[Rfam]
RNA sequence: CUUUGGAUCGAUCGGAGACCCAAGGCGGAAGGAG
Numbered sequence: 001c002u003u004u005g006g007a008u009c010g011a012u013c014g015g016a017g018a019c020c021c022a023a024g025g026c027g028g029a030a031g032g033a034g
Base pairs, nucleotide, nucleotide: 001025002024003023004022005021008018009017
A member of the RNA family "L31-Firmicutes ribosomal protein leader", 34 nucleotides long. By type it is a cis-regulatory leader.